[Rfam]
The record is a 105-nucleotide RNA sequence from Prunus persica, which matches "MIR6274 microRNA precursor family" in Rfam.
Pairs were carried over by alignment from the consensus structure, which was predicted with RNAalifold.
The match comes from Rfam's covariance-model search (85 bits).
RNA sequence: GGAUAACACUUUUUGCUAUCUCCGAUCAAUAACACAAUAAUACGUGAGAUAACUUUUUCACGUGUCAUUGUGUUAUUGACCGAAGACGGCAAAACAGUAUUAUGC
Numbered sequence: 001g002g003a004u005a006a007c008a009c010u011u012u013u014u015g016c017u018a019u020c021u022c023c024g025a026u027c028a029a030u031a032a033c034a035c036a037a038u039a040a041u042a043c044g045u046g047a048g049a050u051a052a053c054u055u056u057u058u059c060a061c062g063u064g065u066c067a068u069u070g071u072g073u074u075a076u077u078g079a080c081c082g083a084a085g086a087c088g089g090c091a092a093a094a095c096a097g098u099a100u101u102a103u104g105c
Stems, first nucleotide, its partner, number of pairs: 003103003011094007019086001021084001023082002026079013040065010